Source information
A member of the RNA family "MIR2617 microRNA precursor family" from Medicago truncatula, 87 nucleotides long. The family has 3 seed sequences and 1,174 matches in Rfam 15.1. The source organism's lineage runs through Eukaryota, Magnoliopsida, Papilionoideae, Trifolieae and Medicago. A search with the family's covariance model found it, with a score of 63 bits. The family's consensus secondary structure was predicted with RNAalifold.
RNA sequence: AAGUAGUGUGACAUGCCCGUUUUGGUGAUAUACUCUGAUGUUUAUUUAUUAUUUAAUUGUUUUGGCAUAACGGGGUGUUACAGUUCA
Numbered sequence: 001a002a003g004u005a006g007u008g009u010g011a012c013a014u015g016c017c018c019g020u021u022u023u024g025g026u027g028a029u030a031u032a033c034u035c036u037g038a039u040g041u042u043u044a045u046u047u048a049u050u051a052u053u054u055a056a057u058u059g060u061u062u063u064g065g066c067a068u069a070a071c072g073g074g075g076u077g078u079u080a081c082a083g084u085u086c087a
Stems, first nucleotide, its partner, number of pairs: 003086001005084001007082008016074006